[Rfam]
RNA sequence: CACACGUGAGGCAUGGGGCGUCCGGGAGAAAUCCGGUGCGUUCCGCCGGUGGCAGGGCCGAUGGGUUCUGCUGUUCGCCUUGCGGAGGUUCAACCGGAAAAGGAGAAUA
Numbered sequence: 001c002a003c004a005c006g007u008g009a010g011g012c013a014u015g016g017g018g019c020g021u022c023c024g025g026g027a028g029a030a031a032u033c034c035g036g037u038g039c040g041u042u043c044c045g046c047c048g049g050u051g052g053c054a055g056g057g058c059c060g061a062u063g064g065g066u067u068c069u070g071c072u073g074u075u076c077g078c079c080u081u082g083c084g085g086a087g088g089u090u091c092a093a094c095c096g097g098a099a100a101a102g103g104a105g106a107a108u109a
Base pairs, nucleotide, nucleotide: 001087003085005084006083007082008081009080010079011078015044016043023035024034026033051072052071053070054069055068056067057066058065059064
The record is a 109-nucleotide RNA sequence from Mycoplana dimorpha, which matches "rpsB sRNA" in Rfam.
On this family, see Meyer et al., BMC Genomics 2009: "Identification of candidate structured RNAs in the marine organism 'Candidatus Pelagibacter ubique'".
The family has 4 seed sequences and 245 matches in Rfam 15.1.
A search with the family's covariance model found it, with a score of 48 bits.
The organism belongs to Mycoplana, within Bacteria.